[Rfam]
RNA sequence: GACGGGGCUCGAAAGGUCCUGUGGCAAACGACCGAGGAGCGAUCCUCCAGUAGGACCCACAGGAAGCCGGUGUUCCGUCGUACGUUUUGAAAAACGA
Number, nucleotide and partner (000 for none) at each position: 001g079002a078003c077004g076005g075006g074007g073008c072009u000010c070011g000012a000013a000014a000015g068016g067017u000018c000019c062020u061021g060022u059023g058024g057025c000026a000027a000028a000029c053030g000031a000032c000033c000034g047035a046036g045037g044038a043039g000040c000041g000042a000043u038044c037045c036046u035047c034048c000049a000050g000051u000052a000053g029054g000055a000056c000057c024058c023059a022060c021061a020062g019063g000064a000065a000066g000067c016068c015069g000070g010071u000072g008073u007074u006075c005076c004077g003078u002079c001080g000081u000082a000083c096084g095085u094086u000087u000088u000089g000090a000091a000092a000093a000094a085095c084096g083097a000
Source information: The record is a 97-nucleotide part of an RNA from Halorientalis sp. IM1011, which matches "Archaeal large subunit ribosomal RNA" in Rfam. NCBI's taxonomy places the organism under Archaea, Methanobacteriota, Halobacteriales, Haloarculaceae, Halorientalis. The family's consensus secondary structure is taken from published work.